[Rfam]
RNA sequence: CCGCCCGUCAUUACAGCCAAUGCAUCGUCAGCGUCAAGAGGCUGGACAGACUGCACUUCGGUGCGGCCCGAAAAGCCCCUGAACGUCGAUGAGACUAGGGUGUACAAGUCGUAACACGGUCCCCGUAGGUGAACCUGCGGGGGAUCACCC
Numbered sequence: 001c002c003g004c005c006c007g008u009c010a011u012u013a014c015a016g017c018c019a020a021u022g023c024a025u026c027g028u029c030a031g032c033g034u035c036a037a038g039a040g041g042c043u044g045g046a047c048a049g050a051c052u053g054c055a056c057u058u059c060g061g062u063g064c065g066g067c068c069c070g071a072a073a074a075g076c077c078c079c080u081g082a083a084c085g086u087c088g089a090u091g092a093g094a095c096u097a098g099g100g101u102g103u104a105c106a107a108g109u110c111g112u113a114a115c116a117c118g119g120u121c122c123c124c125g126u127a128g129g130u131g132a133a134c135c136u137g138c139g140g141g142g143g144a145u146c147a148c149c150c
Base pairs, nucleotide, nucleotide: 001118003115006111007110009108012104013103014102015101017099018098025092026091027090028089029088031086032085033084034083037080038079040077041076042075043074047070049068051066052065053064054063055062056061120143121142122141123140124139125138126137127136128135129134

Rfam assigns this 150-nucleotide part of an RNA from Marteilia refringens to the family "Eukaryotic small subunit ribosomal RNA".
Clan: SSU clan.
Rfam links the family to the GO terms structural constituent of ribosome and ribosome.
Pairs were carried over by alignment from the consensus structure, which is taken from published work.